[Rfam]
Nucleotides: 062
Stems, first nucleotide, its partner, number of pairs: 034059011
Number, partner (000 for none) and nucleotide at each position: 001000a002000a003000g004000u005000a006000u007000u008000a009000c010000a011000g012000c013000u014000c015000u016000u017000u018000u019000a020000g021000a022000a023000u024000u025000u026000g027000u028000u029000u030000a031000g032000c033000a034059g035058g036057c037056u038055u039054u040053c041052u042051a043050g044049u045000c046000g047000u048000u049044a050043u051042u052041g053040g054039a055038a056037a057036g058035c059034c060000u061000c062000u